[Rfam]
RNA: L31-Actinobacteria ribosomal protein leader
RNA sequence: CCGGCGCCGGUUCACCCCUCGACGAAGGGGACCCGGGGCC
Numbered sequence: 001c002c003g004g005c006g007c008c009g010g011u012u013c014a015c016c017c018c019u020c021g022a023c024g025a026a027g028g029g030g031a032c033c034c035g036g037g038g039c040c
Stems, first nucleotide, its partner, number of pairs: 003040003007036004015030005